[Rfam]
RNA: tRNA
Organism: Dietzia sp. ANT_WB102
RNA sequence: GCCCCCAUAGCCCAAUUGGCAGAGGCAGACGGCUUAAAACCGUCACAGUGUCGGUUCGAGUCCGACUGGGGGUA
Numbered sequence: 001g002c003c004c005c006c007a008u009a010g011c012c013c014a015a016u017u018g019g020c021a022g023a024g025g026c027a028g029a030c031g032g033c034u035u036a037a038a039a040c041c042g043u044c045a046c047a048g049u050g051u052c053g054g055u056u057c058g059a060g061u062c063c064g065a066c067u068g069g070g071g072g073u074a
Base pairs, nucleotide, nucleotide: 001073002072003071004070005069006068007067010026011025012024028044029043030042031041032040050066051065052064053063054062